Background: This 182-nucleotide RNA from Candidatus Enterovibrio escicola belongs to the Rfam family "Lysine riboswitch aptamer". Riboswitches are metabolite binding domains within certain messenger RNAs that serve as precision sensors for their corresponding targets. Allosteric rearrangement of mRNA structure is mediated by ligand binding, and this results in modulation of gene expression. This family includes riboswitches that sense lysine in a number of genes involved in lysine metabolism, including lysC. Gene Ontology term of the family: lysine biosynthetic process.

[Rfam]
RNA sequence: UAUGAACGUAGAGGUGCGCGGUUUAUGAGUAGCGGGUCUUAGGGUGAUACCAAUGAGGACUUGUAAAAGGAAAUAGCGCCGAAGUGGAAAUUUGCCAAUCAGGCUCUUUUGCUGGGGUUGUGCUCGAACAGACACAACACUGCCAUAGUAUUGGGAUUUAACUAUGGAGUGCUACAGUAGAU
Numbered sequence: 001u002a003u004g005a006a007c008g009u010a011g012a013g014g015u016g017c018g019c020g021g022u023u024u025a026u027g028a029g030u031a032g033c034g035g036g037u038c039u040u041a042g043g044g045u046g047a048u049a050c051c052a053a054u055g056a057g058g059a060c061u062u063g064u065a066a067a068a069g070g071a072a073a074u075a076g077c078g079c080c081g082a083a084g085u086g087g088a089a090a091u092u093u094g095c096c097a098a099u100c101a102g103g104c105u106c107u108u109u110u111g112c113u114g115g116g117g118u119u120g121u122g123c124u125c126g127a128a129c130a131g132a133c134a135c136a137a138c139a140c141u142g143c144c145a146u147a148g149u150a151u152u153g154g155g156a157u158u159u160a161a162c163u164a165u166g167g168a169g170u171g172c173u174a175c176a177g178u179a180g181a182u
Stems, first nucleotide, its partner, number of pairs: 008175004016079004021074004032064008083113007093103001114141002117138006124131001143167007
Dot-bracket structure: .......((((....((((.((((.......((((((((.................))))))))......)))).))))...(((((((...(.........)...)))))))((.((((((.(......).)))))).)).(((((((...........)))))))....)))).......